[Rfam]
RNA sequence: GGAGGUGUGUGUCAGUGAUGGCACAACUGAACAUUGAUCGCUUUUGCUCAGUAGGCUGAUCUGCUCAGUGACGUGCGGUCACGUGGUCGAUCCAGCAACCAAUGGACUCUGCCGAUGCCUUAGCACGCACGGUUAGUCAUCCUCUGGUUUCUUGAACGUCCGCCAUUUCCAAAUUUUGGGGGGUCACGGAUGGGUUUCAUUUAGAACACCUCCAAUAAUAGGCACUACUGCUUUGUAGUUCGCCAUUUUUG
Numbered sequence: 001g002g003a004g005g006u007g008u009g010u011g012u013c014a015g016u017g018a019u020g021g022c023a024c025a026a027c028u029g030a031a032c033a034u035u036g037a038u039c040g041c042u043u044u045u046g047c048u049c050a051g052u053a054g055g056c057u058g059a060u061c062u063g064c065u066c067a068g069u070g071a072c073g074u075g076c077g078g079u080c081a082c083g084u085g086g087u088c089g090a091u092c093c094a095g096c097a098a099c100c101a102a103u104g105g106a107c108u109c110u111g112c113c114g115a116u117g118c119c120u121u122a123g124c125a126c127g128c129a130c131g132g133u134u135a136g137u138c139a140u141c142c143u144c145u146g147g148u149u150u151c152u153u154g155a156a157c158g159u160c161c162g163c164c165a166u167u168u169c170c171a172a173a174u175u176u177u178g179g180g181g182g183g184u185c186a187c188g189g190a191u192g193g194g195u196u197u198c199a200u201u202u203a204g205a206a207c208a209c210c211u212c213c214a215a216u217a218a219u220a221g222g223c224a225c226u227a228c229u230g231c232u233u234u235g236u237a238g239u240u241c242g243c244c245a246u247u248u249u250u251g
Stems, first nucleotide, its partner, number of pairs: 001213008015082005027068003032063002036061004040056004221244003224239005
Dot-bracket structure: ((((((((......(((((.......(((..((..((((((((.........)))).))))))..))).........)))))...........................................................................................................................)))))))).......((((((((......)))))..))).......
Arthropod 7SK RNA: a 251-nucleotide RNA sequence from Asbolus verrucosus. The family is grouped with related families in Rfam's "7SK clan". The literature on the family includes a 2008 paper in Mol Biol Evol by Gruber et al., "Arthropod 7SK RNA". Taxonomically the source falls in Asbolus (Eukaryota, Opisthokonta, Dicondylia, Tenebrionidae). It scores 138 bits against the family's covariance model. The family has 19 seed sequences and 229 matches in Rfam 15.1. Rfam classes the family as a non-coding RNA gene.